[Rfam]
This 94-nucleotide RNA from Protea cynaroides belongs to the Rfam family "Small nucleolar RNA Z162". Its family is annotated with nucleolus and RNA processing in the Gene Ontology. For this family Rfam cites "The high diversity of snoRNAs in plants: identification and comparative study of 120 snoRNA genes from Oryza sativa" (Chen et al., Nucleic Acids Res, 2003).
RNA sequence: GUCGGCACAAUGAGGAGAAAUUGAACUUAUGUAUGAGAUCGAAUGAUCUUUGAUUUGUUGAAAAUAAUCAAGUCCUUUUCAUUCUGAGUGCUGU
Dot-bracket structure: ...(((((.(((((.......................(((....)))..............................))))).....)))))..
By type it is a C/D-box small nucleolar RNA.